RNA: Purine riboswitch aptamer
Organism: Virgibacillus pantothenticus
Nucleotides: 100
Stems, first nucleotide, its partner, number of pairs: 021083005029047006056076007
Number, partner (000 for none) and nucleotide at each position: 001000c002000c003000u004000g005000u006000g007000u008000u009000a010000a011000u012000u013000a014000a015000a016000u017000a018000g019000a020000c021083g022082c023081g024080u025079a026000u027000a028000a029047u030046u031045u032044g033043g034042g035000g036000a037000u038000a039000g040000g041000g042034c043033u044032c045031a046030a047029a048000g049000u050000u051000u052000c053000u054000a055000c056076c057075a058074g059073a060072c061071u062070g063000c064000c065000g066000u067000a068000a069000a070062u071061a072060g073059u074058c075057u076056g077000a078000c079025u080024a081023c082022g083021c084000a085000a086000g087000a088000g089000a090000u091000a092000c093000u094000g095000a096000u097000u098000g099000c100000a